The family of this 98-nucleotide RNA sequence from Enterococcus sp. NBRC 3427 is "TPP riboswitch aptamer (THI element)".
NCBI's taxonomy places the organism under Bacteria, Bacillota, Bacilli, Enterococcaceae, Enterococcus.
RNA sequence: UUUGAUUUGCAGGGGGACGCUAUGGCGUUGAGAAGGUAAAACCUGACCCUUUGAACCUGUUGGUUGAUACCAGCGUAGGGAGCAAAUGUCUUUUUUGU
Numbered sequence: 001u002u003u004g005a006u007u008u009g010c011a012g013g014g015g016g017a018c019g020c021u022a023u024g025g026c027g028u029u030g031a032g033a034a035g036g037u038a039a040a041a042c043c044u045g046a047c048c049c050u051u052u053g054a055a056c057c058u059g060u061u062g063g064u065u066g067a068u069a070c071c072a073g074c075g076u077a078g079g080g081a082g083c084a085a086a087u088g089u090c091u092u093u094u095u096u097g098u
Stems, first nucleotide, its partner, number of pairs: 006086005011050004016044001017028004035043003056079004060073004